RNA: Small nucleolar RNA SNORD35
RNA sequence: UGGUGAUGAUGUCUGAACUCACGAUGGUCUUCAGAGCCCGUGCUGGUGCGGGGGCUGCUGACAACGCCAGUGGCAACUGCUGAACCGCGAGG
Numbered sequence: 001u002g003g004u005g006a007u008g009a010u011g012u013c014u015g016a017a018c019u020c021a022c023g024a025u026g027g028u029c030u031u032c033a034g035a036g037c038c039c040g041u042g043c044u045g046g047u048g049c050g051g052g053g054g055c056u057g058c059u060g061a062c063a064a065c066g067c068c069a070g071u072g073g074c075a076a077c078u079g080c081u082g083a084a085c086c087g088c089g090a091g092g
Base pairs, nucleotide, nucleotide: 001087002086003085004084